RNA sequence: UAUAGAAUUACGCUUAAUUUCCGGCCGCGAAGGUUGGGAAGCGGGGGAACCAUUAUUUUGGGGCGAAUCAAGAUGUAUUGUAGGGAACCAUCUUUCCCGAGCCCGACAGCUAACCUCGUCAGCAGCAGAUGGGUCACAA
Numbered sequence: 001u002a003u004a005g006a007a008u009u010a011c012g013c014u015u016a017a018u019u020u021c022c023g024g025c026c027g028c029g030a031a032g033g034u035u036g037g038g039a040a041g042c043g044g045g046g047g048a049a050c051c052a053u054u055a056u057u058u059u060g061g062g063g064c065g066a067a068u069c070a071a072g073a074u075g076u077a078u079u080g081u082a083g084g085g086a087a088c089c090a091u092c093u094u095u096c097c098c099g100a101g102c103c104c105g106a107c108a109g110c111u112a113a114c115c116u117c118g119u120c121a122g123c124a125g126c127a128g129a130u131g132g133g134u135c136a137c138a139a
Base pairs, nucleotide, nucleotide: 012123013122014121018040019039020038021037022036023035024034025033026032041119042118043117044116045115046114051060052059061104062103063102069080070079071078083098084097085096086095